[Rfam]
Nucleotides: 114
Base pairs, nucleotide, nucleotide: 001114002113003112004111005110006109007108008107013041015040016039017038021031022030023029025083027081028080042075043074044073045072047071048070050067051066052065053064079106084103085102086101087100088099089098
Number, partner (000 for none) and nucleotide at each position: 001114c002113u003112c004111u005110u006109a007108u008107c009000a010000a011000g012000a013041g014000u015040a016039g017038c018000u019000g020000a021031g022030g023029g024000a025083c026000u027081g028080g029023c030022c031021c032000u033000g034000u035000g036000a037000a038017g039016c040015u041013c042075g043074g044073c045072a046000a047071c048070c049000g050067u051066u052065c053064a054000u055000u056000c057000a058000u059000c060000a061000g062000a063000a064053u065052g066051a067050a068000u069000u070048g071047g072045u073044g074043c075042u076000a077000a078000a079106u080028c081027c082000u083025g084103c085102a086101a087100a088099a089098c090000a091000c092000g093000u094000u095000u096000g097000u098089g099088u100087u101086u102085u103084g104000g105000a106079a107008g108007a109006u110005a111004a112003g113002a114001g